[Rfam]
RNA sequence: UUUUUCAAUGAUGACUCCAUAGACCUGUACUGAAUGCGGAGAUGACCGCAAUGUAUAGAACAUCUAAGGGGCUGAGAAACC
Dot-bracket structure: ..((((.....................................................................))))..
Notes:
Shown here is an 81-nucleotide sequence from Protea cynaroides, a member of the family "Small nucleolar RNA SNORD25". A search with the family's covariance model found it, with a score of 45 bits. Pairs were carried over by alignment from the consensus structure, which was predicted with PFOLD. Rfam links the family to the GO terms nucleolus and RNA processing.